Rfam assigns this 67-nucleotide RNA sequence from Cetobacterium ceti to the family "S4-Fusobacteriales ribosomal protein leader".
Taxonomically the source falls in Cetobacterium (Bacteria, Fusobacteriati, Fusobacteriia, Fusobacteriales).
The match comes from Rfam's covariance-model search (60 bits).
Rfam classes the family as a cis-regulatory leader.
RNA sequence: CUGUAAAGGUAUGUUGGACUGUAGGGUCCUUUCUUAUGGAUCGCCAGCCAUAAGGCAUAUCGAAGAA
Numbered sequence: 001c002u003g004u005a006a007a008g009g010u011a012u013g014u015u016g017g018a019c020u021g022u023a024g025g026g027u028c029c030u031u032u033c034u035u036a037u038g039g040a041u042c043g044c045c046a047g048c049c050a051u052a053a054g055g056c057a058u059a060u061c062g063a064a065g066a067a
Base pairs, nucleotide, nucleotide: 008061009060010059011058012057013056016029017028018027019026020025033054034053035052036051037050038049039048